RNA sequence: UUGUGCUAGGCGGGGAGCUAGCGGUGCCCUCUACCCGAAAUCCGCUUUAUGCGGGGCUGAAUUCCCCCUCGAGGAUCUUGUCCCCGAUACGUGCCGCUUUGACCGGCCGCCGCGCAACAGACACUCACGAACCUUGUCAGGUCCGGAAGGAAGCAGCAAUAAGUGAUGGCGUCUGUGUCGCGGAUCGAUCCCGGUCAAUCUGUGGCGUGUUGAAAGGAAAAGAUUCGACCAGGGGGUGCACAA
Numbered sequence: 001u002u003g004u005g006c007u008a009g010g011c012g013g014g015g016a017g018c019u020a021g022c023g024g025u026g027c028c029c030u031c032u033a034c035c036c037g038a039a040a041u042c043c044g045c046u047u048u049a050u051g052c053g054g055g056g057c058u059g060a061a062u063u064c065c066c067c068c069u070c071g072a073g074g075a076u077c078u079u080g081u082c083c084c085c086g087a088u089a090c091g092u093g094c095c096g097c098u099u100u101g102a103c104c105g106g107c108c109g110c111c112g113c114g115c116a117a118c119a120g121a122c123a124c125u126c127a128c129g130a131a132c133c134u135u136g137u138c139a140g141g142u143c144c145g146g147a148a149g150g151a152a153g154c155a156g157c158a159a160u161a162a163g164u165g166a167u168g169g170c171g172u173c174u175g176u177g178u179c180g181c182g183g184a185u186c187g188a189u190c191c192c193g194g195u196c197a198a199u200c201u202g203u204g205g206c207g208u209g210u211u212g213a214a215a216g217g218a219a220a221a222g223a224u225u226c227g228a229c230c231a232g233g234g235g236g237u238g239c240a241c242a243a
Base pairs, nucleotide, nucleotide: 001243002242003241004240005239006238009058010057011056012030013029014028015027017025018024019023034055035054036053037052039050064236065235066234067233068232069231073226074225075224076223077222079220081218082217083216085212086211087210088209089208090207093206094205096203097202099198100197101196102195103194104193105192106191110183111182112181113180114179115177116176118175119174120173121172122171125166126165127164128163134159135158136157137156142151143150144149

Shown here is a 243-nucleotide sequence from Desulfococcus multivorans, a member of the family "Bacterial large signal recognition particle RNA".
The base pairs follow the family's consensus structure, which is taken from published work.
Its Rfam clan is "SRP clan".
Rfam links the family to the GO terms SRP-dependent cotranslational protein targeting to membrane, signal sequence recognition and signal recognition particle, plasma membrane targeting.
The family's RNA type in Rfam is non-coding RNA gene.